[Rfam]
RNA sequence: UCAGUUCAUGUAAACAUCCUACACUCAGCUGUAGUCACUGGCAGCGCCGGCUGAGAGAAGGCUGUUUACGUGCACUGG
Numbered sequence: 001u002c003a004g005u006u007c008a009u010g011u012a013a014a015c016a017u018c019c020u021a022c023a024c025u026c027a028g029c030u031g032u033a034g035u036c037a038c039u040g041g042c043a044g045c046g047c048c049g050g051c052u053g054a055g056a057g058a059a060g061g062c063u064g065u066u067u068a069c070g071u072g073c074a075c076u077g078g
Base pairs, nucleotide, nucleotide: 002077003076004075005074008071009070010069011068012067013066014065015064016063018061019060020059022057024055025054026053027052028051029050030049
The record is a 78-nucleotide RNA from Salarias fasciatus, which matches "mir-30 microRNA precursor family" in Rfam.
The family's consensus secondary structure was predicted with PFOLD.
Rfam links the family to the GO terms RISC complex and gene silencing by miRNA.
This family consists of the mammalian microRNA (miRNA) precursor mir-30a.
A reference for the family is Lagos-Quintana et al. (2001), "Identification of novel genes coding for small expressed RNAs", Science.
Taxonomically the source falls in Salarias (Eukaryota, Metazoa, Vertebrata, Teleostei).